Description: Shown here is a 187-nucleotide RNA sequence from Tannerella sp. oral taxon 808, a member of the family "Bacteroidales-1 6S-Bacteroidales RNA suggested".
[Rfam]
RNA sequence: AGCCGCAUUGUUCGAUUGGGGAACUCAUCAUACAAUAUUAGAAUUCCGAGACAUGCUCUUGGCACCAAUGGCGGGCUGCAAACUUCGGUUCUGUCCCCCUCGGGGGGCACAGCAGAUUACAACGGCGUCAAAGGCUCUCAAAUCCUGUCAUUCGGAGUUCGUUCAAUUCCACAGUGCGGCUUUCCCC
Number, nucleotide and partner (000 for none) at each position: 001a000002g000003c000004c000005g000006c000007a000008u000009u000010g000011u000012u000013c000014g000015a000016u000017u000018g000019g000020g000021g000022a000023a000024c000025u000026c000027a000028u000029c000030a000031u000032a000033c000034a000035a000036u000037a000038u000039u000040a000041g000042a000043a000044u000045u000046c000047c000048g000049a000050g000051a000052c000053a000054u000055g135056c134057u132058c000059u131060u130061g129062g128063c127064a000065c125066c124067a000068a000069u121070g120071g000072c000073g000074g000075g000076c115077u114078g113079c112080a000081a090082a089083c088084u000085u000086c000087g000088g083089u082090u081091c000092u000093g000094u000095c000096c000097c000098c000099c000100u000101c000102g000103g000104g000105g000106g000107g000108c000109a000110c000111a000112g079113c078114a077115g076116a000117u000118u000119a000120c070121a069122a000123c000124g066125g065126c000127g063128u062129c061130a060131a059132a057133g000134g056135c055136u000137c000138u000139c000140a000141a000142a000143u000144c000145c000146u000147g000148u000149c000150a000151u000152u000153c000154g000155g000156a000157g000158u000159u000160c000161g000162u000163u000164c000165a000166a000167u000168u000169c000170c000171a000172c000173a000174g000175u000176g000177c000178g000179g000180c000181u000182u000183u000184c000185c000186c000187c000

The organism belongs to Tannerella, within Bacteria. Pairs were carried over by alignment from the consensus structure, which is taken from published work.